RNA: tRNA
Organism: Pseudoclavibacter endophyticus
RNA sequence: GGGGCCGUAGCUCACCUGCUAGAGCGCCGCUUUUGCAAGGCGGAGGCAAGGGGUUCGAGUCCCCUCGGCUCCA
Number, nucleotide and partner (000 for none) at each position: 001g072002g071003g070004g069005c068006c067007g066008u000009a000010g025011c024012u023013c022014a000015c000016c000017u000018g000019c000020u000021a000022g013023a012024g011025c010026g000027c043028c042029g041030c040031u039032u000033u000034u000035g000036c000037a000038a000039g031040g030041c029042g028043g027044a000045g000046g000047c000048a000049a065050g064051g063052g062053g061054u000055u000056c000057g000058a000059g000060u000061c053062c052063c051064c050065u049066c007067g006068g005069c004070u003071c002072c001073a000